[Rfam]
RNA sequence: GGGCAUUGAUGAUCACCUGAGGAAGUCAUGCACCACUCUUGAUGAAUCUGUGCUGAUAAAUUUCUCAUACCCAAUUCUUCUGAGCCU
Numbered sequence: 001g002g003g004c005a006u007u008g009a010u011g012a013u014c015a016c017c018u019g020a021g022g023a024a025g026u027c028a029u030g031c032a033c034c035a036c037u038c039u040u041g042a043u044g045a046a047u048c049u050g051u052g053c054u055g056a057u058a059a060a061u062u063u064c065u066c067a068u069a070c071c072c073a074a075u076u077c078u079u080c081u082g083a084g085c086c087u
Base pairs, nucleotide, nucleotide: 001087002086003085004084
Small nucleolar RNA Z221/R21b: an 87-nucleotide sequence from Malus baccata. The base pairs follow the family's consensus structure, which was predicted with WAR. Lineage of the source: Eukaryota > Streptophyta > Euphyllophyta > Amygdaloideae > Malus. A reference for the family is Chen et al. (2003), "The high diversity of snoRNAs in plants: identification and comparative study of 120 snoRNA genes from Oryza sativa", Nucleic Acids Res. The family has 12 seed sequences and 588 matches in Rfam 15.1.